[Rfam]
Rfam assigns this 159-nucleotide RNA sequence from Oscillospiraceae bacterium Marseille-Q3528 to the family "Clostridiales-1 RNA".
RNA sequence: CAAUGCCAACGGAUACCAGUUAUAUGUAAACGGAAGUGCAGUUUUAUGACUUUAUGCCCCGCCCCGAUAUGAGCAUAAAAGCGAAGUGUAAGCUUCGCGAUAUGCGAAUAUUGGGGUUGAUUGUGGGAGUACGAAGUACGGAACAAUCAACAGGUAUCG
Numbered sequence: 001c002a003a004u005g006c007c008a009a010c011g012g013a014u015a016c017c018a019g020u021u022a023u024a025u026g027u028a029a030a031c032g033g034a035a036g037u038g039c040a041g042u043u044u045u046a047u048g049a050c051u052u053u054a055u056g057c058c059c060c061g062c063c064c065c066g067a068u069a070u071g072a073g074c075a076u077a078a079a080a081g082c083g084a085a086g087u088g089u090a091a092g093c094u095u096c097g098c099g100a101u102a103u104g105c106g107a108a109u110a111u112u113g114g115g116g117u118u119g120a121u122u123g124u125g126g127g128a129g130u131a132c133g134a135a136g137u138a139c140g141g142a143a144c145a146a147u148c149a150a151c152a153g154g155u156a157u158c159g
Base pairs, nucleotide, nucleotide: 001159003157004156005155006154007153011059012058014056018051019050020049021048022047023046024045063115064114065113066112067111068110069109070108073105074104075103076102081098082097083096084095085094086093087092118149119148120147121146122145123144124143129139130138131137132136
The family's RNA type in Rfam is small RNA. It scores 88 bits against the family's covariance model.